This 173-nucleotide RNA sequence from Oceanobacillus indicireducens belongs to the Rfam family "Group II catalytic intron D1-D4-3". A search with the family's covariance model found it, with a score of 107 bits. The source organism's lineage runs through Bacteria, Bacillati, Bacillota, Bacillaceae and Oceanobacillus. Rfam describes the family as follows. Group II introns are found in rRNA, tRNA and mRNA of organelles in fungi, plants and protists, and also in mRNA in bacteria.
RNA sequence: UUAGGAGUGGUUCAGAAUCUGAAGGAAGCAGGAAGCAAAACCCCAAACUGGCGAACAUAAAUUGUAUGUAAGGCUUGCUUGGAAUGGACGAGUUUGCAUGACAAAACAAAGUCCGAUACUGCACGAGUACCACACAGUAGAUACAACAGUUAAAUGAGAGGAAGGUUAUAGCU
Numbered sequence: 001u002u003a004g005g006a007g008u009g010g011u012u013c014a015g016a017a018u019c020u021g022a023a024g025g026a027a028g029c030a031g032g033a034a035g036c037a038a039a040a041c042c043c044c045a046a047a048c049u050g051g052c053g054a055a056c057a058u059a060a061a062u063u064g065u066a067u068g069u070a071a072g073g074c075u076u077g078c079u080u081g082g083a084a085u086g087g088a089c090g091a092g093u094u095u096g097c098a099u100g101a102c103a104a105a106a107c108a109a110a111g112u113c114c115g116a117u118a119c120u121g122c123a124c125g126a127g128u129a130c131c132a133c134a135c136a137g138u139a140g141a142u143a144c145a146a147c148a149g150u151u152a153a154a155u156g157a158g159a160g161g162a163a164g165g166u167u168a169u170a171g172c173u
Base pairs, nucleotide, nucleotide: 001016002015004013005012006011028173032169035166036165042158044156045155046151047150048149049148050147062146063145064144065143066142067141073138074137075136080132081131082130084128086114087113088112089111092107093106094105095104